[Rfam]
RNA sequence: AUACUUGUGCUUCUCUUCAUAAUCAAAUGAAUCUUUUGCCUUUUCCUAAAGAUUCAUCUUGGGAGGGAUAAAGCAUGACUGUUGCUUCAGUUUUUUGAGGCCUUCUGGGAAUAAACAAGGCU
Numbered sequence: 001a002u003a004c005u006u007g008u009g010c011u012u013c014u015c016u017u018c019a020u021a022a023u024c025a026a027a028u029g030a031a032u033c034u035u036u037u038g039c040c041u042u043u044u045c046c047u048a049a050a051g052a053u054u055c056a057u058c059u060u061g062g063g064a065g066g067g068a069u070a071a072a073g074c075a076u077g078a079c080u081g082u083u084g085c086u087u088c089a090g091u092u093u094u095u096u097g098a099g100g101c102c103u104u105c106u107g108g109g110a111a112u113a114a115a116c117a118a119g120g121c122u
Base pairs, nucleotide, nucleotide: 003080005078006077011068012067013066014065016063017062018061019060029055030054031053032052033051034050035049036048098122100121101120102119103118104117
Dot-bracket structure: ..(.((....((((.((((.........((((((((...........))))))))....)))).))))........)).).................(.(((((............))))))
Annotation:
U5 spliceosomal RNA: a 122-nucleotide RNA sequence from Balaenoptera musculus. It is annotated as a spliceosomal small nuclear RNA. U5 RNA is a component of both types of known spliceosome. The match comes from Rfam's covariance-model search (41 bits). The family's consensus secondary structure is taken from published work. Lineage of the source: Eukaryota > Deuterostomia > Tetrapoda > Amniota > Balaenoptera.